[Rfam]
RNA: Glycine riboswitch aptamer
RNA sequence: CACAGGCCGUCUGGAGAGCCGUCAGCGUCCGUUCACACAACGGCUGACGCACCGAAGGAGCAAGGCCCGGCCCGCAAGGUCGGCGCUGAAUCUCUCAGGUACCAAGGACAGGGGGAGCGGC
Numbered sequence: 001c002a003c004a005g006g007c008c009g010u011c012u013g014g015a016g017a018g019c020c021g022u023c024a025g026c027g028u029c030c031g032u033u034c035a036c037a038c039a040a041c042g043g044c045u046g047a048c049g050c051a052c053c054g055a056a057g058g059a060g061c062a063a064g065g066c067c068c069g070g071c072c073c074g075c076a077a078g079g080u081c082g083g084c085g086c087u088g089a090a091u092c093u094c095u096c097a098g099g100u101a102c103c104a105a106g107g108a109c110a111g112g113g114g115g116a117g118c119g120g121c
Stems, first nucleotide, its partner, number of pairs: 007115002010112004020049007051100003054096002058094003064087002